[Rfam]
RNA: Mason-Pfizer monkey virus packaging signal
Organism: Nannospalax galili
RNA sequence: UGGCGCCCAACGUGCGGCUGGAUACUAGGGGCACAUCAUAAGAGAGGACAAAAAAAAAAAGAAAAAAAUACACUCGCUAAAUCUCAAGAAAUUAGGAGACGCGCCACGGGAGCCUGCCAUGACCAAACCAAAAGUAAGUCAAUCCAUCCAAUCAUGGGACAAGGAUUAAGCCAGCAUCAGAUUUAUGUUACGCAGUUGAGGGAGGCUCUCAAGACAAGAGGAGUAAAGGUUAAGACUGUAGAUUUAUUUCAUUUCUUUAAUUUUGUGAAAGACAUUUGUCCUU
Numbered sequence: 001u002g003g004c005g006c007c008c009a010a011c012g013u014g015c016g017g018c019u020g021g022a023u024a025c026u027a028g029g030g031g032c033a034c035a036u037c038a039u040a041a042g043a044g045a046g047g048a049c050a051a052a053a054a055a056a057a058a059a060a061g062a063a064a065a066a067a068a069u070a071c072a073c074u075c076g077c078u079a080a081a082u083c084u085c086a087a088g089a090a091a092u093u094a095g096g097a098g099a100c101g102c103g104c105c106a107c108g109g110g111a112g113c114c115u116g117c118c119a120u121g122a123c124c125a126a127a128c129c130a131a132a133a134g135u136a137a138g139u140c141a142a143u144c145c146a147u148c149c150a151a152u153c154a155u156g157g158g159a160c161a162a163g164g165a166u167u168a169a170g171c172c173a174g175c176a177u178c179a180g181a182u183u184u185a186u187g188u189u190a191c192g193c194a195g196u197u198g199a200g201g202g203a204g205g206c207u208c209u210c211a212a213g214a215c216a217a218g219a220g221g222a223g224u225a226a227a228g229g230u231u232a233a234g235a236c237u238g239u240a241g242a243u244u245u246a247u248u249u250c251a252u253u254u255c256u257u258u259a260a261u262u263u264u265g266u267g268a269a270a271g272a273c274a275u276u277u278g279u280c281c282u283u
Stems, first nucleotide, its partner, number of pairs: 006030003012025003036048002039045001091135001092132002105121002108118002143161001147158004168209001170206003218258006227245005268283002271280003